A member of the RNA family "SAM riboswitch aptamer (S box leader)" from Calidifontibacillus erzurumensis, 116 nucleotides long.
[Rfam]
RNA sequence: UGCUUAUCCAGAGUGGAGGAGGGAAAGGCCCAAUGAAUCCACGGCAACCCCAAUCUUCUUUAUAAAAAGAUGGAAGGUGCCAAUUCCUGCUGUAUCAGUAAACAGCAAGAUAAGUG
Numbered sequence: 001u002g003c004u005u006a007u008c009c010a011g012a013g014u015g016g017a018g019g020a021g022g023g024a025a026a027g028g029c030c031c032a033a034u035g036a037a038u039c040c041a042c043g044g045c046a047a048c049c050c051c052a053a054u055c056u057u058c059u060u061u062a063u064a065a066a067a068a069g070a071u072g073g074a075a076g077g078u079g080c081c082a083a084u085u086c087c088u089g090c091u092g093u094a095u096c097a098g099u100a101a102a103c104a105g106c107a108a109g110a111u112a113a114g115u116g
Base pairs, nucleotide, nucleotide: 001116002115003114004113005112006111007110008109013042014041015040016039017038021031022030023029026088027087028086043081044080045079046078048077049076050073051072052071085108090105091104092103093102095100